[Rfam]
RNA: skipping-rope RNA
Nucleotides: 089
Stems, first nucleotide, its partner, number of pairs: 001089008011030004021075005033051004062081005
Number, partner (000 for none) and nucleotide at each position: 001089a002088u003087c004086a005085c006084c007083a008082g009000a010000g011030g012029u013028a014027g015000a016000a017000a018000u019000u020000u021075c022074c023073g024072c025071c026000g027014c028013u029012a030011c031000g032000c033051a034050c035049c036048g037000a038000g039000c040000c041000g042000c043000a044000a045000g046000g047000c048036c049035g050034g051033u052000c053000a054000c055000a056000g057000a058000a059000g060000a061000u062081g063080u064079c065078g066077g067000g068000a069000c070000u071025g072024g073023c074022g075021g076000a077066c078065c079064g080063a081062c082008c083007u084006g085005g086004u087003g088002a089001u